This 189-nucleotide sequence from Pseudomonas benzenivorans belongs to the Rfam family "Pseudomonas sRNA P27".
The family's consensus secondary structure was predicted with WAR.
The match comes from Rfam's covariance-model search (195 bits).
It is annotated as a small RNA.
RNA sequence: CGGGUUUACUCCUGGAUGUUACCGUUUCGUCCAACCAGGGCUGGACGGCGUUUUGGUGUCUGAUUCGGUAAGAAUCGGGAGCACCAUCUGCGUAGGCUGAUGAUUUAAGACUUGCGCCGCCUACGGUCUUGGAUAGCCCCCGCCAGGCAGGGACCCCAAUCUUUCAGGCUGACGGAAUCGCUUCCGCCA
Dot-bracket structure: .((((((...((((........((...((((((.(....).)))))).))...(((((((((((((.....)))))))..))))))...(((..((((....((((((((((............))))))))))))))..)))))))...))))))..............(.((((......)))).).